[Rfam]
RNA sequence: CGCAAACGGGUAAGUGCUGCACGGCUUGCUCCCUCAAAUCCUCCAGGGCUUGACCGCAGCAAAGGUAGUAAGGUUGACGCGGCGCGAUACAGUUAGCUUGCCCACCC
Numbered sequence: 001c002g003c004a005a006a007c008g009g010g011u012a013a014g015u016g017c018u019g020c021a022c023g024g025c026u027u028g029c030u031c032c033c034u035c036a037a038a039u040c041c042u043c044c045a046g047g048g049c050u051u052g053a054c055c056g057c058a059g060c061a062a063a064g065g066u067a068g069u070a071a072g073g074u075u076g077a078c079g080c081g082g083c084g085c086g087a088u089a090c091a092g093u094u095a096g097c098u099u100g101c102c103c104a105c106c107c
Stems, first nucleotide, its partner, number of pairs: 008103008017092003021088001022086002024083002
The record is a 107-nucleotide sequence from Pseudoprevotella muciniphila, which matches "Bacteroidales small SRP" in Rfam. A reference for the family is Ryan et al. (2020), "A high-resolution transcriptome map identifies small RNA regulation of metabolism in the gut microbe Bacteroides thetaiotaomicron", Nat Commun. By type it is a non-coding RNA gene. Pairs were carried over by alignment from the consensus structure, which is taken from published work. Taxonomically the source falls in Pseudoprevotella (Bacteria, Bacteroidota, Bacteroidia, Bacteroidales).